Shown here is a 237-nucleotide RNA from Burkholderia sp. Leaf177, a member of the family "Burkholderia sRNA Bp1_Cand871_SIPHT". For this family Rfam cites "Computational discovery and RT-PCR validation of novel Burkholderia conserved and Burkholderia pseudomallei unique sRNAs" (Khoo et al., BMC Genomics, 2012).
RNA sequence: UCGCCCACAAUCACUUCAACGGUCUCAACACAUAUGUGACUCGGUUCAACGUGGGAAAAGAGCAACAGUACCCACUUGCGCUGGUCGGUCGGAACGGUUCCGAAACCCAUUUUCUGGGACAUGUCUGUUGGGCUCGUUGGUCGAUAAAACAGGUAAUCGACCCUUUCCCACCUUUGGUCUCCUCGCGCUAACCCCGUAGCGUGUGGUUUUUAGCGGGCUCCAGGCCCGCUUUUUUUU
Numbered sequence: 001u002c003g004c005c006c007a008c009a010a011u012c013a014c015u016u017c018a019a020c021g022g023u024c025u026c027a028a029c030a031c032a033u034a035u036g037u038g039a040c041u042c043g044g045u046u047c048a049a050c051g052u053g054g055g056a057a058a059a060g061a062g063c064a065a066c067a068g069u070a071c072c073c074a075c076u077u078g079c080g081c082u083g084g085u086c087g088g089u090c091g092g093a094a095c096g097g098u099u100c101c102g103a104a105a106c107c108c109a110u111u112u113u114c115u116g117g118g119a120c121a122u123g124u125c126u127g128u129u130g131g132g133c134u135c136g137u138u139g140g141u142c143g144a145u146a147a148a149a150c151a152g153g154u155a156a157u158c159g160a161c162c163c164u165u166u167c168c169c170a171c172c173u174u175u176g177g178u179c180u181c182c183u184c185g186c187g188c189u190a191a192c193c194c195c196g197u198a199g200c201g202u203g204u205g206g207u208u209u210u211u212a213g214c215g216g217g218c219u220c221c222a223g224g225c226c227c228g229c230u231u232u233u234u235u236u237u
Base pairs, nucleotide, nucleotide: 005177006176007175018138019137020136021135022134024132025131026130027129028128029127030126032124033123034122035121036120037119038086039085040084051075052074053073054072089103090102091101092100093099106118107117108116109115141160142159143158144157145156181206182205184203185202186201187200188199189198190197212230213229214228215227216226217225218224219223
It scores 180 bits against the family's covariance model.
Pairs were carried over by alignment from the consensus structure, which was predicted with CMfinder.